[Rfam]
RNA sequence: UACACAUCCGACGAGACACAACAUUCUGCUGCAAUGUUGUGGGACCUGCAGUGUCCGACGGAUGUGUU
Numbered sequence: 001u002a003c004a005c006a007u008c009c010g011a012c013g014a015g016a017c018a019c020a021a022c023a024u025u026c027u028g029c030u031g032c033a034a035u036g037u038u039g040u041g042g043g044a045c046c047u048g049c050a051g052u053g054u055c056c057g058a059c060g061g062a063u064g065u066g067u068u
Stems, first nucleotide, its partner, number of pairs: 002067006009060002012057002020038006043055003
Rfam assigns this 68-nucleotide sequence from Cryomyces minteri to the family "bZIP non canonical Hac1/Xbp1 intron". Taxonomically the source falls in Cryomyces (Eukaryota, Opisthokonta, saccharomyceta, dothideomyceta). The base pairs follow the family's consensus structure, which was predicted with RNAfold. The family has 112 seed sequences and 1,325 matches in Rfam 15.1. About the family: bZIP intron RNA is a non-canonical intron that was first reported in HAC1 gene in yeast and XBP1 gene in Metazoa. On this family, see Hooks and Griffiths-Jones, RNA Biol 2011: "Conserved RNA structures in the non-canonical Hac1/Xbp1 intron".